Source information: The record is a 485-nucleotide RNA from Lachancea thermotolerans, which matches "Yeast U1 spliceosomal RNA" in Rfam. The base pairs follow the family's consensus structure, which is taken from published work. The family is grouped with related families in Rfam's "U1 clan". On this family, see Kretzner et al., Proc Natl Acad Sci U S A 1990: "Saccharomyces cerevisiae U1 small nuclear RNA secondary structure contains both universal and yeast-specific domains".
RNA sequence: AUACUUACCUUAAGACGUCGGAGGAGAUCAAGAAGUCCUUCCGACCGGAUAUAUCUUUCUUGAGCGAUGCCCGUCUUUUACAGGAGGCAGGUUCGCUUGCUCAGUUGCUUUGCAACUGCACACACUUGCGAAAGGUGUAUUUGCUGACGCUUCGUUCUCUCGUUCCGCUUGUGGGCUACUGUCUUCCACCUGGGAGGCAGGGGUCUACUUGUCGGGGCCCUUUGUUUCUUCUGCCUGGAGAAGGAUGGUGCUGAUUACAAGUCAGCGCUGGGAGAGCUGGGUGCAGAGCUGAUUGAUCCAGUUACUGGACCCUCAGUCUUGUGUGGUAGUCGAUUCCUGUGUACAGCGGGCACUGGUGUUUUUGGUGUUGUUUUCGGACGGCGCCGAAGGCUACUGGAGCACGCAGGUGCACGGAGAAGGUGUGCUACCCAGGGCAGCUCUGCAUUUGGUAGGGGCGGGUAGGUCUUAUAAUUUUUGAUGUUCAA
Numbered sequence: 001a002u003a004c005u006u007a008c009c010u011u012a013a014g015a016c017g018u019c020g021g022a023g024g025a026g027a028u029c030a031a032g033a034a035g036u037c038c039u040u041c042c043g044a045c046c047g048g049a050u051a052u053a054u055c056u057u058u059c060u061u062g063a064g065c066g067a068u069g070c071c072c073g074u075c076u077u078u079u080a081c082a083g084g085a086g087g088c089a090g091g092u093u094c095g096c097u098u099g100c101u102c103a104g105u106u107g108c109u110u111u112g113c114a115a116c117u118g119c120a121c122a123c124a125c126u127u128g129c130g131a132a133a134g135g136u137g138u139a140u141u142u143g144c145u146g147a148c149g150c151u152u153c154g155u156u157c158u159c160u161c162g163u164u165c166c167g168c169u170u171g172u173g174g175g176c177u178a179c180u181g182u183c184u185u186c187c188a189c190c191u192g193g194g195a196g197g198c199a200g201g202g203g204u205c206u207a208c209u210u211g212u213c214g215g216g217g218c219c220c221u222u223u224g225u226u227u228c229u230u231c232u233g234c235c236u237g238g239a240g241a242a243g244g245a246u247g248g249u250g251c252u253g254a255u256u257a258c259a260a261g262u263c264a265g266c267g268c269u270g271g272g273a274g275a276g277c278u279g280g281g282u283g284c285a286g287a288g289c290u291g292a293u294u295g296a297u298c299c300a301g302u303u304a305c306u307g308g309a310c311c312c313u314c315a316g317u318c319u320u321g322u323g324u325g326g327u328a329g330u331c332g333a334u335u336c337c338u339g340u341g342u343a344c345a346g347c348g349g350g351c352a353c354u355g356g357u358g359u360u361u362u363u364g365g366u367g368u369u370g371u372u373u374u375c376g377g378a379c380g381g382c383g384c385c386g387a388a389g390g391c392u393a394c395u396g397g398a399g400c401a402c403g404c405a406g407g408u409g410c411a412c413g414g415a416g417a418a419g420g421u422g423u424g425c426u427a428c429c430c431a432g433g434g435c436a437g438c439u440c441u442g443c444a445u446u447u448g449g450u451a452g453g454g455g456c457g458g459g460u461a462g463g464u465c466u467u468a469u470a471a472u473u474u475u476u477g478a479u480g481u482u483c484a485a
Stems, first nucleotide, its partner, number of pairs: 010471003013466003017045005022039004046143014148457006156275006162218006168211001172207005181198006228243005248268007
Dot-bracket structure: .........((((((.(((((((((..........)))).)))))((((((((((((((......................................................................))))))))))))))....((((((..(((((((((((((...(((((....((((((......))))))....)))))...).)))))).........(((((......)))))....(((((((.......))))))).))))))................................................................................................................................................................................))))))......)))..)))..............